[Rfam]
RNA sequence: CGCUGCCACUCUUCACAACGGAUCGUCCGGCACGUACCUGCCGGUGAAGGGAAGGGCCC
Numbered sequence: 001c002g003c004u005g006c007c008a009c010u011c012u013u014c015a016c017a018a019c020g021g022a023u024c025g026u027c028c029g030g031c032a033c034g035u036a037c038c039u040g041c042c043g044g045u046g047a048a049g050g051g052a053a054g055g056g057c058c059c
Stems, first nucleotide, its partner, number of pairs: 009051007027044006
msiK RNA: a 59-nucleotide RNA sequence from Salana multivorans. The family's RNA type in Rfam is cis-regulatory element.